The record is a 115-nucleotide RNA from Helianthus annuus, which matches "Small nucleolar RNA Z278" in Rfam.
NCBI's taxonomy places the organism under Eukaryota, Embryophyta, Asterales, Heliantheae, Helianthus.
The family has 7 seed sequences and 1,130 matches in Rfam 15.1.
Pairs were carried over by alignment from the consensus structure, which was predicted with PFOLD.
About the family: snoZ278 is a C/D box small nucleolar RNA. Its methylation guide targets have not been reported.
Gene Ontology terms of the family: nucleolus and RNA processing.
RNA sequence: UCCGGUGAUGAUAUAAUCCGAUUGUAUGAGGUACGUGGAUCCAAGACCCUGUUUACAGGGAGAACCACUUGGUUGAAGCUGUAUUUCAAAUGAUAUUACUGGAUUUUACUGAGGA
Number, nucleotide and partner (000 for none) at each position: 001u115002c114003c113004g000005g000006u000007g000008a000009u000010g000011a000012u000013a000014u000015a000016a000017u000018c000019c000020g000021a000022u000023u000024g000025u000026a000027u000028g000029a000030g000031g000032u000033a000034c000035g000036u000037g000038g000039a000040u000041c000042c000043a000044a000045g000046a000047c060048c059049c058050u057051g056052u000053u000054u000055a000056c051057a050058g049059g048060g047061a000062g000063a000064a000065c000066c000067a000068c000069u000070u000071g000072g000073u000074u000075g000076a000077a000078g000079c000080u000081g000082u000083a000084u000085u000086u000087c000088a000089a000090a000091u000092g000093a000094u000095a000096u000097u000098a000099c000100u000101g000102g000103a000104u000105u000106u000107u000108a000109c000110u000111g000112a000113g003114g002115a001